[Rfam]
This 100-nucleotide sequence from Ruminiclostridium papyrosolvens belongs to the Rfam family "NiCo (Nickel/Cobalt) riboswitch aptamer". Taxonomically the source falls in Ruminiclostridium papyrosolvens (Bacteria, Bacillati, Oscillospiraceae, Ruminiclostridium). Clan: NiCo_riboswitches. For this family Rfam cites "Bacterial riboswitches cooperatively bind Ni(2+) or Co(2+) ions and control expression of heavy metal transporters" (Furukawa et al., Mol Cell, 2015). Its family is annotated with cobalt ion binding and metal ion homeostasis in the Gene Ontology.
Nucleotides: 100
Stems, first nucleotide, its partner, number of pairs: 010099001012098003017094001019060003023054010063073004075091005
Number, partner (000 for none) and nucleotide at each position: 001000a002000a003000a004000c005000u006000a007000u008000a009000a010099u011000u012098u013097a014096g015000a016000g017094c018000a019060g020059g021058c022000g023054a024053u025052g026051c027050a028049g029048c030047u031046g032045u033000a034000g035000a036000c037000c038000u039000u040000u041000u042000a043000a044000g045032a046031c047030a048029g049028u050027u051026g052025u053024g054023u055000g056000g057000g058021g059020c060019u061000g062000g063073g064072c065071c066070g067000a068000a069000a070066c071065g072064g073063c074000a075091a076090c077089a078088g079087g080000a081000u082000a083000u084000a085000a086000a087079c088078c089077u090076g091075u092000g093000g094017g095000a096014c097013u098012a099010a100000g